Shown here is a 102-nucleotide RNA sequence from Bacillus salinus, a member of the family "Purine riboswitch aptamer". Lineage of the source: Bacteria > Bacillati > Bacilli > Bacillaceae > Bacillus.
RNA sequence: AAUACAUAACUUAUAACACCUCAUAUAAUCUUGGGAAUAUGGCCCAUAAGUUUCUACCCGAUGACCGUAAAUCGUUGGACUAUGAGGGAAAGUAUAGCGGAA
Dot-bracket structure: ..................(((((((...(..((((.......))))..)........(((((((.......)))))))..)))))))...............
The base pairs follow the family's consensus structure, which is taken from published work. A search with the family's covariance model found it, with a score of 88 bits.